[Rfam]
Shown here is a 66-nucleotide RNA from Friedmanniomyces endolithicus, a member of the family "bZIP non canonical Hac1/Xbp1 intron". The family has 112 seed sequences and 1,325 matches in Rfam 15.1. On this family, see Iracane et al., mSphere 2018: "Identification of an Exceptionally Long Intron in the HAC1 Gene of Candida parapsilosis". Pairs were carried over by alignment from the consensus structure, which was predicted with RNAfold. The match comes from Rfam's covariance-model search (45 bits). Rfam describes the family as follows. bZIP intron RNA is a non-canonical intron that was first reported in HAC1 gene in yeast and XBP1 gene in Metazoa.
RNA sequence: GAAGCUCCUCGACCCGAUGCAUCCUGCCGCGAUGCCCGACCUGCAGUGUCGGUCGAGCCGAGCUUC
Numbered sequence: 001g002a003a004g005c006u007c008c009u010c011g012a013c014c015c016g017a018u019g020c021a022u023c024c025u026g027c028c029g030c031g032a033u034g035c036c037c038g039a040c041c042u043g044c045a046g047u048g049u050c051g052g053u054c055g056a057g058c059c060g061a062g063c064u065u066c
Stems, first nucleotide, its partner, number of pairs: 001066007010055005019035005038050003